[Rfam]
RNA sequence: UGGUGGAUGUGCGACUGGCGGAUCAGUGGAACAACCACAGGGAGCACAAUUCUGAAACAGCCGACCGCCUGGGCCGGGAGA
Numbered sequence: 001u002g003g004u005g006g007a008u009g010u011g012c013g014a015c016u017g018g019c020g021g022a023u024c025a026g027u028g029g030a031a032c033a034a035c036c037a038c039a040g041g042g043a044g045c046a047c048a049a050u051u052c053u054g055a056a057a058c059a060g061c062c063g064a065c066c067g068c069c070u071g072g073g074c075c076g077g078g079a080g081a
Stems, first nucleotide, its partner, number of pairs: 003053001005051002008048005015041002017069005026038004058076001060074003
The family of this 81-nucleotide RNA from Holdemania filiformis is "ZMP/ZTP riboswitch aptamer (pfl RNA motif)".